Background:
The record is a 102-nucleotide RNA from Oceanobacillus picturae, which matches "Purine riboswitch aptamer" in Rfam. The source organism's lineage runs through Bacteria, Bacillati, Bacillota, Bacillaceae and Oceanobacillus. The family's consensus secondary structure is taken from published work. It scores 84 bits against the family's covariance model. Rfam links the family to the GO term purine nucleobase biosynthetic process.
RNA sequence: UUUGAAUAAAUAUAUGCCUUUCGUAUAUCCUCGAUAAUAUGGAUCGAAAGUUUCUACCGGAGUACCGUAAAUGCUCUGACUAUGAAGGCAGAAUUUCUAUAG
Dot-bracket structure: .................((((((((.....(((((.......)))))..........(((((((.......)))))))..))))))))..............